[Rfam]
RNA sequence: CGCGUAGUUAGACGGAAAGACCCCGUGCACCUUUACUGCAACUUUACAUUGGUGUUAGGAAAAACAUAUUUAGCAUAGGAGGGAGACAUUGAAGCAGAGGCGUCAGCUUUUGUGGAGUCACCAGUGAAAUACCUCUUUUGUUUUUCUUGAUAUCUAACUGAUUGCCGUCAUCCGGCAUCAAGACAUUGUAUGGUGGGUAGUUUGACUGGGGCGGUCGCCUCCCAAAUAGUAACGGAGGCGUGCGAAGGUAGGCUCAGAACGGUCAGAAAUCGUUCGUAGAGUGCAAUGGCAUAAGCCUGCCUGACUGUGAGACUGACAAGUCGAGCAGAGACGAAAGUCGGUCAUAGUGAUCCGGUGGUUCUGAGUGGAAGGGCCAUCGCUCAACGGAUAAAAGGUACGCCGGGGAUAACAGGCUGAUACUGCCCAAGAGCUCAUAUCGACGGCAGUGUUUGGCACCUCGAUGUCGGCUCAUCACAUCCUGGGGCUGGAGCAGGUCCCAAGGGUUUGGCUGUUCGCCAAUUAAAGUGGUACGUGAGCUGGGUUCAGAACGUCGUGAGACAGUUCGGUCCCUAUCUGCUAUGCGUGUA
Numbered sequence: 001c002g003c004g005u006a007g008u009u010a011g012a013c014g015g016a017a018a019g020a021c022c023c024c025g026u027g028c029a030c031c032u033u034u035a036c037u038g039c040a041a042c043u044u045u046a047c048a049u050u051g052g053u054g055u056u057a058g059g060a061a062a063a064a065c066a067u068a069u070u071u072a073g074c075a076u077a078g079g080a081g082g083g084a085g086a087c088a089u090u091g092a093a094g095c096a097g098a099g100g101c102g103u104c105a106g107c108u109u110u111u112g113u114g115g116a117g118u119c120a121c122c123a124g125u126g127a128a129a130u131a132c133c134u135c136u137u138u139u140g141u142u143u144u145u146c147u148u149g150a151u152a153u154c155u156a157a158c159u160g161a162u163u164g165c166c167g168u169c170a171u172c173c174g175g176c177a178u179c180a181a182g183a184c185a186u187u188g189u190a191u192g193g194u195g196g197g198u199a200g201u202u203u204g205a206c207u208g209g210g211g212c213g214g215u216c217g218c219c220u221c222c223c224a225a226a227u228a229g230u231a232a233c234g235g236a237g238g239c240g241u242g243c244g245a246a247g248g249u250a251g252g253c254u255c256a257g258a259a260c261g262g263u264c265a266g267a268a269a270u271c272g273u274u275c276g277u278a279g280a281g282u283g284c285a286a287u288g289g290c291a292u293a294a295g296c297c298u299g300c301c302u303g304a305c306u307g308u309g310a311g312a313c314u315g316a317c318a319a320g321u322c323g324a325g326c327a328g329a330g331a332c333g334a335a336a337g338u339c340g341g342u343c344a345u346a347g348u349g350a351u352c353c354g355g356u357g358g359u360u361c362u363g364a365g366u367g368g369a370a371g372g373g374c375c376a377u378c379g380c381u382c383a384a385c386g387g388a389u390a391a392a393a394g395g396u397a398c399g400c401c402g403g404g405g406a407u408a409a410c411a412g413g414c415u416g417a418u419a420c421u422g423c424c425c426a427a428g429a430g431c432u433c434a435u436a437u438c439g440a441c442g443g444c445a446g447u448g449u450u451u452g453g454c455a456c457c458u459c460g461a462u463g464u465c466g467g468c469u470c471a472u473c474a475c476a477u478c479c480u481g482g483g484g485c486u487g488g489a490g491c492a493g494g495u496c497c498c499a500a501g502g503g504u505u506u507g508g509c510u511g512u513u514c515g516c517c518a519a520u521u522a523a524a525g526u527g528g529u530a531c532g533u534g535a536g537c538u539g540g541g542u543u544c545a546g547a548a549c550g551u552c553g554u555g556a557g558a559c560a561g562u563u564c565g566g567u568c569c570c571u572a573u574c575u576g577c578u579a580u581g582c583g584u585g586u587a
Base pairs, nucleotide, nucleotide: 001583002582003581004580005579006578007577008576010575011574012573014570015569022404023403024402025401027400028399029396030395031394032393033392035201036200037199038198042193043192045190046189047188048187051154052153053152054151055150056149057148058147059146060145061144062143063142064141065140066139068137078136079135080134081133082132085119086118087117094113095112096111097110098109099108100107101106159180160179163177164176165175166174167173204216205215206214207213217239218238219237220236221235222234240385242342243341248300249299250298251297252296253295254280255279257275258274259273260272261271262270281290282289305328306327307326308325311322312321313320330339331338332337353379354378355377356376357375358374359373361372362371413454414453415452417451418448419447420446421445422444423443424442428438429437465540466538467537468536469535470532471529472528473527474526475525478503479502481498482497483496484495485494486493505519506518507517508516509515546564547563548562549561550559551558552557

This 587-nucleotide part of an RNA from Pelagibacterales bacterium SAG-MED04 belongs to the Rfam family "Bacterial large subunit ribosomal RNA". The base pairs follow the family's consensus structure, which is taken from published work. It scores 2702 bits against the family's covariance model.